[Rfam]
RNA: mir-239 microRNA precursor family
RNA sequence: AAUGCUUUGUACUCUGACUAAGGUGCUGCUACAAGAUUAUGGGUCAGCACCUUGGCUAGGUGCAAUGCUAAA
Number, nucleotide and partner (000 for none) at each position: 001a000002a000003u000004g068005c067006u000007u065008u064009g063010u062011a061012c060013u000014c000015u000016g056017a000018c055019u054020a053021a052022g051023g050024u049025g000026c047027u046028g045029c043030u042031a000032c000033a000034a000035g000036a000037u000038u000039a000040u000041g000042g030043g029044u000045c028046a027047g026048c000049a024050c023051c022052u021053u020054g019055g018056c016057u000058a000059g000060g012061u011062g010063c009064a008065a007066u000067g005068c004069u000070a000071a000072a000